[Rfam]
RNA sequence: AGCGCGUUCGGGUCGACCGCGCGGGUCACCGUCAGGUAAUCCCGGAUCGCGAUGCCGUGCCGGCCCUC
Numbered sequence: 001a002g003c004g005c006g007u008u009c010g011g012g013u014c015g016a017c018c019g020c021g022c023g024g025g026u027c028a029c030c031g032u033c034a035g036g037u038a039a040u041c042c043c044g045g046a047u048c049g050c051g052a053u054g055c056c057g058u059g060c061c062g063g064c065c066c067u068c
Stems, first nucleotide, its partner, number of pairs: 005062002008059001011030003015027004035056004040052002043049002
ASdes TB sRNA: a 68-nucleotide RNA from Paractinoplanes rishiriensis. Rfam classes the family as a small RNA. The source organism's lineage runs through Bacteria, Actinomycetota, Micromonosporales, Micromonosporaceae and Paractinoplanes. The family's consensus secondary structure is taken from published work.